[Rfam]
RNA sequence: AGAGGCCCUCCGUGGCCGGUGUGGAAUGCUUGCUUUGUUGCCGUAGUGACAAAGCAAGCAUUCUACCAGGCCACUCAUGCUGCCUGC
Numbered sequence: 001a002g003a004g005g006c007c008c009u010c011c012g013u014g015g016c017c018g019g020u021g022u023g024g025a026a027u028g029c030u031u032g033c034u035u036u037g038u039u040g041c042c043g044u045a046g047u048g049a050c051a052a053a054g055c056a057a058g059c060a061u062u063c064u065a066c067c068a069g070g071c072c073a074c075u076c077a078u079g080c081u082g083c084c085u086g087c
Stems, first nucleotide, its partner, number of pairs: 004084003012074006021066013037050005
mir-9195 microRNA precursor family: an 87-nucleotide sequence from Myotis davidii. The organism belongs to Myotis, within Eukaryota. Its family is annotated with miRNA-mediated post-transcriptional gene silencing and RISC complex in the Gene Ontology. The family has 3 seed sequences and 438 matches in Rfam 15.1. It scores 91 bits against the family's covariance model.